[Rfam]
RNA sequence: UAAUUAAGGGCACACAAAGGAUGCCUAGGUAGUAAGAGCCGAUGAAGGACGUGGUAAGCUGCGAUAAGCCUAGAUAAGUUGCAAUCGAACGUAAGAGUCUAGGAUUUCCGAAUGGAGCAAUCUAUUAAGAUGGAGUCUUAAUACGAAAGAGGGAACCACGUGAACUGAAACAUCUAAGUAACGUGAGGAAAAGAAAGUAAAAACGAUACCCAAAGUAGCGGCGAGCGAACUGGGUCAAGCCUAAACCUUAAAUAUGUCAAGGAUACAGCCGUUGUAUUUAAGGGGUUGAGGGACAAAGUAGUGAAGAACUGUAAGAUAUUCAAUAUAGUGUAUUGAUGAAUUAGAAUUGUAUGGAAAGAUAAACCGCAGAAGGUGAGAGUCCUGUAUAAGUAAAUCCUUACACAUAUAACUUUGCUCCCAAGUAACAUGGAACACGAGGAAUUCUGUGUGAAUCAGUGAGGACCAUAUCUCAUAAGGCUAAAUACUCUUACUAACCGAUAGCGCAUAGUACCGUGAGGGAAAGGUGAAAAGAACCCCUGGAGGGGAGUGAAAUAGAACCUGAAAUUGUGUGCUUACAAG
Numbered sequence: 001u002a003a004u005u006a007a008g009g010g011c012a013c014a015c016a017a018a019g020g021a022u023g024c025c026u027a028g029g030u031a032g033u034a035a036g037a038g039c040c041g042a043u044g045a046a047g048g049a050c051g052u053g054g055u056a057a058g059c060u061g062c063g064a065u066a067a068g069c070c071u072a073g074a075u076a077a078g079u080u081g082c083a084a085u086c087g088a089a090c091g092u093a094a095g096a097g098u099c100u101a102g103g104a105u106u107u108c109c110g111a112a113u114g115g116a117g118c119a120a121u122c123u124a125u126u127a128a129g130a131u132g133g134a135g136u137c138u139u140a141a142u143a144c145g146a147a148a149g150a151g152g153g154a155a156c157c158a159c160g161u162g163a164a165c166u167g168a169a170a171c172a173u174c175u176a177a178g179u180a181a182c183g184u185g186a187g188g189a190a191a192a193g194a195a196a197g198u199a200a201a202a203a204c205g206a207u208a209c210c211c212a213a214a215g216u217a218g219c220g221g222c223g224a225g226c227g228a229a230c231u232g233g234g235u236c237a238a239g240c241c242u243a244a245a246c247c248u249u250a251a252a253u254a255u256g257u258c259a260a261g262g263a264u265a266c267a268g269c270c271g272u273u274g275u276a277u278u279u280a281a282g283g284g285g286u287u288g289a290g291g292g293a294c295a296a297a298g299u300a301g302u303g304a305a306g307a308a309c310u311g312u313a314a315g316a317u318a319u320u321c322a323a324u325a326u327a328g329u330g331u332a333u334u335g336a337u338g339a340a341u342u343a344g345a346a347u348u349g350u351a352u353g354g355a356a357a358g359a360u361a362a363a364c365c366g367c368a369g370a371a372g373g374u375g376a377g378a379g380u381c382c383u384g385u386a387u388a389a390g391u392a393a394a395u396c397c398u399u400a401c402a403c404a405u406a407u408a409a410c411u412u413u414g415c416u417c418c419c420a421a422g423u424a425a426c427a428u429g430g431a432a433c434a435c436g437a438g439g440a441a442u443u444c445u446g447u448g449u450g451a452a453u454c455a456g457u458g459a460g461g462a463c464c465a466u467a468u469c470u471c472a473u474a475a476g477g478c479u480a481a482a483u484a485c486u487c488u489u490a491c492u493a494a495c496c497g498a499u500a501g502c503g504c505a506u507a508g509u510a511c512c513g514u515g516a517g518g519g520a521a522a523g524g525u526g527a528a529a530a531g532a533a534c535c536c537c538u539g540g541a542g543g544g545g546a547g548u549g550a551a552a553u554a555g556a557a558c559c560u561g562a563a564a565u566u567g568u569g570u571g572c573u574u575a576c577a578a579g
Stems, first nucleotide, its partner, number of pairs: 008574010023559001024524002028496002030493009039152002047109003050063003069103007078090003114123003124142007144149001156187001157185005167174002197204002207482001208235005218226002238479004246283011290419003295413005328403005335396003341389003347362004365369001371383003425449008456473005511518002534545004
The record is a 579-nucleotide part of an RNA from Fusobacterium animalis, which matches "Bacterial large subunit ribosomal RNA" in Rfam. The family is grouped with related families in Rfam's "LSU clan".